The record is a 123-nucleotide sequence from Cervus hanglu, which matches "Small nucleolar RNA SNORA40" in Rfam. The snoRNA ACA 40 belongs to the H/ACA family of snoRNAs and guides the pseudouridylation of 28S rRNA subunit at position U4565. NB This family has a high threshold value to exclude a large number of closely related sequences that do not appear to have conserved H and ACA boxes, and may be pseudogenes. It scores 82 bits against the family's covariance model. A reference for the family is Ofengand and Bakin (1997), "Mapping to nucleotide resolution of pseudouridine residues in large subunit ribosomal RNAs from representative eukaryotes, prokaryotes, archaebacteria, mitochondria and chloroplasts", J Mol Biol.
RNA sequence: AGCACUUGUGUAUGCUUUUGUAUCAUUUGUGGACAAAAACUUAUAGACAGGUACAAAAAUCCUCUUUUGCAACUGAGAGCUCCCUGUUCAGCAUCAAUUCUGAUACAGAUAAGAAGGAACAUG
Numbered sequence: 001a002g003c004a005c006u007u008g009u010g011u012a013u014g015c016u017u018u019u020g021u022a023u024c025a026u027u028u029g030u031g032g033a034c035a036a037a038a039a040c041u042u043a044u045a046g047a048c049a050g051g052u053a054c055a056a057a058a059a060u061c062c063u064c065u066u067u068u069g070c071a072a073c074u075g076a077g078a079g080c081u082c083c084c085u086g087u088u089c090a091g092c093a094u095c096a097a098u099u100c101u102g103a104u105a106c107a108g109a110u111a112a113g114a115a116g117g118a119a120c121a122u123g
Stems, first nucleotide, its partner, number of pairs: 002054001004052006011045001014040001016038006026031001060119001062117002065114005076101004081096001